[Rfam]
RNA sequence: UCGGCCCCGGUUCACGCGGCGCAAUCCGCGACGCGACCCGGCGCC
Numbered sequence: 001u002c003g004g005c006c007c008c009g010g011u012u013c014a015c016g017c018g019g020c021g022c023a024a025u026c027c028g029c030g031a032c033g034c035g036a037c038c039c040g041g042c043g044c045c
Stems, first nucleotide, its partner, number of pairs: 003045003007041004015035004020030003
RNA: L31-Actinobacteria ribosomal protein leader
Organism: Streptomyces sp. CNS606